[Rfam]
RNA sequence: GACGCGCUACAACGGCUUCCUGACGUGGCGCGCAUUUUUUUCUAUUGGAGCG
Numbered sequence: 001g002a003c004g005c006g007c008u009a010c011a012a013c014g015g016c017u018u019c020c021u022g023a024c025g026u027g028g029c030g031c032g033c034a035u036u037u038u039u040u041u042c043u044a045u046u047g048g049a050g051c052g
Stems, first nucleotide, its partner, number of pairs: 004033002006029005013022002015051003019048002
SAM/SAH riboswitch aptamer: a 52-nucleotide RNA from Roseobacter insulae. Rfam links the family to the GO terms S-adenosylmethionine metabolic process and regulation of gene expression.